[Rfam]
RNA sequence: UAUUGUCUUCAGGGCAGGGUGUAAUUCCCGACCGGCGGUAAAAGUCCGCGACCUAACUUUUUUUAAGUUGGCUGAUUCGUUGCAAAUACGAAACCGAUAGUUAAAGUCUAGAUGGGAGAAGACAGAU
Numbered sequence: 001u002a003u004u005g006u007c008u009u010c011a012g013g014g015c016a017g018g019g020u021g022u023a024a025u026u027c028c029c030g031a032c033c034g035g036c037g038g039u040a041a042a043a044g045u046c047c048g049c050g051a052c053c054u055a056a057c058u059u060u061u062u063u064u065a066a067g068u069u070g071g072c073u074g075a076u077u078c079g080u081u082g083c084a085a086a087u088a089c090g091a092a093a094c095c096g097a098u099a100g101u102u103a104a105a106g107u108c109u110a111g112a113u114g115g116g117a118g119a120a121g122a123c124a125g126a127u
Stems, first nucleotide, its partner, number of pairs: 003125008017029003031107002033096002035049004044094002053071001076092005098110003
Dot-bracket structure: ..((((((((......(((.......))).[[((((((.....[[))))...(.................)....(((((.......)))))]])).(((.....]]))).......))))))))..
A member of the RNA family "FMN riboswitch aptamer (RFN element)" from Holzapfeliella floricola, 127 nucleotides long. NCBI's taxonomy places the organism under Bacteria, Bacillati, Bacilli, Lactobacillaceae, Holzapfeliella floricola. The family has 146 seed sequences and 6,230 matches in Rfam 15.1.